[Rfam]
RNA sequence: AUUCUACCUUAUUUGAUAGUAGAUUUAAAACUUUGCAACAGAACCGUUCAUGGGUAUAGCAUGAAUUGUUUAACUGUCCUCUAGGAUUCCCGUCCUAUGGCAGUCGGUUC
Numbered sequence: 001a002u003u004c005u006a007c008c009u010u011a012u013u014u015g016a017u018a019g020u021a022g023a024u025u026u027a028a029a030a031c032u033u034u035g036c037a038a039c040a041g042a043a044c045c046g047u048u049c050a051u052g053g054g055u056a057u058a059g060c061a062u063g064a065a066u067u068g069u070u071u072a073a074c075u076g077u078c079c080u081c082u083a084g085g086a087u088u089c090c091c092g093u094c095c096u097a098u099g100g101c102a103g104u105c106g107g108u109u110c
Base pairs, nucleotide, nucleotide: 001020002019003018005016037109038108039107041105042104046066047065048064049063050062051061052060074103075102076101077100078099082097083096084095085094086093087092
Rfam assigns this 110-nucleotide RNA sequence from Enterococcus faecalis to the family "Anti-Q RNA".
The source organism's lineage runs through Bacteria, Bacillota, Lactobacillales, Enterococcaceae and Enterococcus faecalis.
About the family: Qa RNA is a cis-regulatory element from Enterococcus faecalis which is known to negatively regulate prgQ transcription via an antisense mechanism.
By type it is an antisense RNA.